[Rfam]
RNA sequence: UUGGAAGUGAGGAAAAACCUCGCGGGUUGGAAACAAGGACACAACCCCGUGCGGUUUAGGAA
Dot-bracket structure: ..............(((((..((((((((............))).)))))..))))).....
This 62-nucleotide RNA belongs to the Rfam family "Cyano-1 RNA".